TPP riboswitch aptamer (THI element): a 115-nucleotide sequence from Lentzea tibetensis.
Rfam links the family to the GO term thiamine pyrophosphate binding.
The match comes from Rfam's covariance-model search (57 bits).
NCBI's taxonomy places the organism under Bacteria, Bacillati, Actinomycetes, Pseudonocardiales, Lentzea.

[Rfam]
RNA sequence: CGCGUUUGCCACGGGAGUCCGGUGCUGCGCCGGGCUGAGAGGAGGGCGCGCCAGCCCUCGACCGUCCCCACCUGAUCCGGUUCAUGCCGGCGUAGGGAGAGAUGAUGAGAAGGAU
Numbered sequence: 001c002g003c004g005u006u007u008g009c010c011a012c013g014g015g016a017g018u019c020c021g022g023u024g025c026u027g028c029g030c031c032g033g034g035c036u037g038a039g040a041g042g043a044g045g046g047c048g049c050g051c052c053a054g055c056c057c058u059c060g061a062c063c064g065u066c067c068c069c070a071c072c073u074g075a076u077c078c079g080g081u082u083c084a085u086g087c088c089g090g091c092g093u094a095g096g097g098a099g100a101g102a103u104g105a106u107g108a109g110a111a112g113g114a115u
Base pairs, nucleotide, nucleotide: 006104009101011065012064013063014062017035018034019033020032021031022030023029042059043058044057045056046055071096072095073094074093077090078089079088080087